[Rfam]
RNA: ASpks TB sRNA
Organism: Nocardia stercoris
RNA sequence: CUUCAGCGACCCCAACCACAGCGGGCGGUCCGCAGCGCGCUCCUGGCCGUAGGUGGCAAGCAGCGCUUGGGCUUC
Numbered sequence: 001c002u003u004c005a006g007c008g009a010c011c012c013c014a015a016c017c018a019c020a021g022c023g024g025g026c027g028g029u030c031c032g033c034a035g036c037g038c039g040c041u042c043c044u045g046g047c048c049g050u051a052g053g054u055g056g057c058a059a060g061c062a063g064c065g066c067u068u069g070g071g072c073u074u075c
Stems, first nucleotide, its partner, number of pairs: 016024002031071001033069001038065002043060002047056003